[Rfam]
RNA sequence: UUAUUCAUUUACGCCAUAUUAAGCCUUCCGGGAGAUAACUGUGAAUGUCCAGUUAUCUGGAUUCCUGAGUGGCUCCUGUCCACUCUGUUUGACGCCUCCCUGUUAAUGACUUCGAGCCGCGCGCGCGCGGCUCUUUUUUU
Numbered sequence: 001u002u003a004u005u006c007a008u009u010u011a012c013g014c015c016a017u018a019u020u021a022a023g024c025c026u027u028c029c030g031g032g033a034g035a036u037a038a039c040u041g042u043g044a045a046u047g048u049c050c051a052g053u054u055a056u057c058u059g060g061a062u063u064c065c066u067g068a069g070u071g072g073c074u075c076c077u078g079u080c081c082a083c084u085c086u087g088u089u090u091g092a093c094g095c096c097u098c099c100c101u102g103u104u105a106a107u108g109a110c111u112u113c114g115a116g117c118c119g120c121g122c123g124c125g126c127g128c129g130g131c132u133c134u135u136u137u138u139u140u
Base pairs, nucleotide, nucleotide: 001044002043003042004041006013016036020035024031025030048061049060050059051058067085068084069083070082071081072080091104092103093102094101114133115132116131117130118129119128120127121126
Alphaproteobacterial sRNA BjrC1505: a 140-nucleotide RNA from Pannonibacter phragmitetus. Rfam classes the family as a small RNA. Lineage of the source: Bacteria > Pseudomonadati > Pseudomonadota > Hyphomicrobiales > Pannonibacter.